[Rfam]
RNA sequence: CCGCCCGUCGCUGCCCGGGACUGAGCCGUUUCGAGAAAAGCGGAGACUGCUGUAUUGAAGCCGAAUAUUUGCGGUGGAAAUACUCUGGUGGAAAUCGCCUUAAUCGCAGUGGCUUGAACCGGGCAAAAGUCGUAACAAGGUUUCCGUAGGUGAACCUGCAGAAGGAUCAAGC
Numbered sequence: 001c002c003g004c005c006c007g008u009c010g011c012u013g014c015c016c017g018g019g020a021c022u023g024a025g026c027c028g029u030u031u032c033g034a035g036a037a038a039a040g041c042g043g044a045g046a047c048u049g050c051u052g053u054a055u056u057g058a059a060g061c062c063g064a065a066u067a068u069u070u071g072c073g074g075u076g077g078a079a080a081u082a083c084u085c086u087g088g089u090g091g092a093a094a095u096c097g098c099c100u101u102a103a104u105c106g107c108a109g110u111g112g113c114u115u116g117a118a119c120c121g122g123g124c125a126a127a128a129g130u131c132g133u134a135a136c137a138a139g140g141u142u143u144c145c146g147u148a149g150g151u152g153a154a155c156c157u158g159c160a161g162a163a164g165g166a167u168c169a170a171g172c
Stems, first nucleotide, its partner, number of pairs: 001139001003136001006132002009129001012125007021116001023115008032106003037101002040098004047091005052083005060075003141164004146159005
Eukaryotic small subunit ribosomal RNA: a 172-nucleotide part of an RNA from Dracunculus medinensis. A reference for the family is Cannone et al. (2002), "The comparative RNA web (CRW) site: an online database of comparative sequence and structure information for ribosomal, intron, and other RNAs", BMC Bioinformatics. Its family is annotated with structural constituent of ribosome and ribosome in the Gene Ontology. The sequence is in the family's curated seed alignment.